Group II catalytic intron D1-D4-3: a 172-nucleotide RNA from Methylomonas methanica.
RNA sequence: ACAGAGCCAAUGCGGAAUCUGAAGGAAGCUGGAACCAAAUCGGUCACCUAAACGAAAGUGAACCUUCGUAAGGCAACCACAGUGGGUAAGGUGCCGUGAGCCACUUAAGCCCCAAAUUCUCACCGUAAAUUGUGGCUGUAGUGAAGGUAGGUGGAUCGAGACAGUGGGGACU
Numbered sequence: 001a002c003a004g005a006g007c008c009a010a011u012g013c014g015g016a017a018u019c020u021g022a023a024g025g026a027a028g029c030u031g032g033a034a035c036c037a038a039a040u041c042g043g044u045c046a047c048c049u050a051a052a053c054g055a056a057a058g059u060g061a062a063c064c065u066u067c068g069u070a071a072g073g074c075a076a077c078c079a080c081a082g083u084g085g086g087u088a089a090g091g092u093g094c095c096g097u098g099a100g101c102c103a104c105u106u107a108a109g110c111c112c113c114a115a116a117u118u119c120u121c122a123c124c125g126u127a128a129a130u131u132g133u134g135g136c137u138g139u140a141g142u143g144a145a146g147g148u149a150g151g152u153g154g155a156u157c158g159a160g161a162c163a164g165u166g167g168g169g170a171c172u
Stems, first nucleotide, its partner, number of pairs: 002012002031172002035168002040159006046152005063147005073139003077135007084112004090105004

The organism belongs to Methylomonas methanica, within Bacteria. Pairs were carried over by alignment from the consensus structure.